[Rfam]
RNA sequence: ACCAACUCUUUUUUCACGUUCCUUGCUUUCAUGGGCUAUGGUUGACCCGGACAGAAAGCUGAUUAAUCCGUAGGGAGCACUAAUG
Numbered sequence: 001a002c003c004a005a006c007u008c009u010u011u012u013u014u015c016a017c018g019u020u021c022c023u024u025g026c027u028u029u030c031a032u033g034g035g036c037u038a039u040g041g042u043u044g045a046c047c048c049g050g051a052c053a054g055a056a057a058g059c060u061g062a063u064u065a066a067u068c069c070g071u072a073g074g075g076a077g078c079a080c081u082a083a084u085g
Stems, first nucleotide, its partner, number of pairs: 018078007025059006033048003